A member of the RNA family "MIR5565 microRNA precursor family" from Sorghum bicolor, 109 nucleotides long.
[Rfam]
RNA sequence: GUUGUCGAAUUCACCUCAAUUCACAUGCGUUGGAGUGGAUUGGAGUGGAAUUUAGUUCAAGUUCCAUUCCAAUCCACCCCAACACAUAUGGAUUAAUGUGAAUCCGACU
Number, nucleotide and partner (000 for none) at each position: 001g000002u000003u000004g108005u107006c106007g105008a000009a103010u102011u101012c100013a099014c098015c000016u096017c000018a094019a093020u092021u091022c090023a089024c000025a087026u086027g085028c000029g083030u082031u081032g080033g000034a000035g077036u076037g075038g074039a073040u072041u071042g070043g069044a000045g067046u066047g065048g000049a000050a000051u000052u000053u000054a000055g000056u000057u000058c000059a000060a000061g000062u000063u000064c000065c047066a046067u045068u000069c043070c042071a041072a040073u039074c038075c037076a036077c035078c000079c000080c032081a031082a030083c029084a000085c027086a026087u025088a000089u023090g022091g021092a020093u019094u018095a000096a016097u000098g014099u013100g012101a011102a010103u009104c000105c007106g006107a005108c004109u000